[Rfam]
RNA sequence: GUAGAAAUGGAAGGUAAGGAACUUUCAUCUCUAUAAAAUUUUAUAAGCAUAAGGAGGCUUAUA
Numbered sequence: 001g002u003a004g005a006a007a008u009g010g011a012a013g014g015u016a017a018g019g020a021a022c023u024u025u026c027a028u029c030u031c032u033a034u035a036a037a038a039u040u041u042u043a044u045a046a047g048c049a050u051a052a053g054g055a056g057g058c059u060u061a062u063a
Stems, first nucleotide, its partner, number of pairs: 002033004006028001008027006042063007
Rfam assigns this 63-nucleotide RNA to the family "cow-rumen-4 RNA". The family's consensus secondary structure is taken from published work.